[Rfam]
RNA: radC RNA
RNA sequence: AUUCUUGCCCCAUGUUCGUCGGCGUUGCCGACACAUGCCCAGGCAGCCGAGACCUUCAAGGCUGCAAGCACGGGAAACCGUGCUGGUCGAUGCUUUCCACGGACGUGCCGCGUCCACACCCACAAGGGACCUCUCCCUUGCGGGCGG
Dot-bracket structure: ..........(((((..((((((...))))))))))).....((((((..[[[[.....)))))).(((((((....)))))))]]]]...............................((.(((((((....))))))).....))